[Rfam]
RNA: Small nucleolar RNA SNORD113/SNORD114 family
RNA sequence: UGAACUAGUGGUGAUGGCUUGUGGCAUAUUUAGUCACAGAUGAUGAAUAAAUACAUGCCUGAGACUCUGAGGUUAGU
Numbered sequence: 001u002g003a004a005c006u007a008g009u010g011g012u013g014a015u016g017g018c019u020u021g022u023g024g025c026a027u028a029u030u031u032a033g034u035c036a037c038a039g040a041u042g043a044u045g046a047a048u049a050a051a052u053a054c055a056u057g058c059c060u061g062a063g064a065c066u067c068u069g070a071g072g073u074u075a076g077u
Stems, first nucleotide, its partner, number of pairs: 003074004